[Rfam]
RNA sequence: AUAUAAAUGCAUUGUACACCGUAGACUGCAGGUGCGAGAGCUUAAAUUACUUGCCUGCAUAGGUGGUUGGGUUAAGAUAAUCAAACCUUCCAUGUCUACUGGAAGGUUUUUUAAUUUGUUUC
Numbered sequence: 001a002u003a004u005a006a007a008u009g010c011a012u013u014g015u016a017c018a019c020c021g022u023a024g025a026c027u028g029c030a031g032g033u034g035c036g037a038g039a040g041c042u043u044a045a046a047u048u049a050c051u052u053g054c055c056u057g058c059a060u061a062g063g064u065g066g067u068u069g070g071g072u073u074a075a076g077a078u079a080a081u082c083a084a085a086c087c088u089u090c091c092a093u094g095u096c097u098a099c100u101g102g103a104a105g106g107u108u109u110u111u112u113a114a115u116u117u118g119u120u121u122c
Stems, first nucleotide, its partner, number of pairs: 028058006034041002085107008093098001
The family of this 122-nucleotide RNA sequence from Oxobacter pfennigii is "Ribosomal protein L10 leader".
The family's consensus secondary structure was predicted with CMfinder.
A search with the family's covariance model found it, with a score of 55 bits.
Taxonomically the source falls in Oxobacter (Bacteria, Bacillota, Clostridia, Eubacteriales).